RNA sequence: UAGUAAUUGCUCCUUUGUGAGUAAUUUUGGUUAAGCAUGAAGAAAUGCUCUGCAAAAGGUUUUUUCUUCAUGCUUUUAUUAUAUCA
Number, nucleotide and partner (000 for none) at each position: 001u000002a000003g028004u000005a026006a025007u024008u023009g022010c021011u020012c019013c000014u000015u000016u000017g000018u000019g012020a011021g010022u009023a008024a007025u006026u005027u000028u003029g000030g000031u000032u000033a075034a074035g073036c072037a071038u070039g069040a068041a067042g066043a065044a064045a063046u000047g000048c000049u000050c000051u000052g000053c000054a000055a000056a000057a000058g000059g000060u000061u000062u000063u045064u044065u043066c042067u041068u040069c039070a038071u037072g036073c035074u034075u033076u000077u000078a000079u000080u000081a000082u000083a000084u000085c000086a000

Rfam assigns this 86-nucleotide sequence from Lactococcus lactis to the family "ctRNA". Rolling circle replication plasmids contain a number of mechanisms to maintain a low copy number. One of these methods is to transcribe a small RNA called ctRNA (for counter-transcribed RNA) than is transcribed on the opposite strand to RepB the replication initiation protein. ctRNA binds to the mRNA of repB and causes translational inhibition. For this family Rfam cites "Involvement of antisense RNA in replication control of the lactococcal plasmid pND324" (Duan et al., FEMS Microbiol Lett, 1998). Pairs were carried over by alignment from the consensus structure, which was predicted with ILM.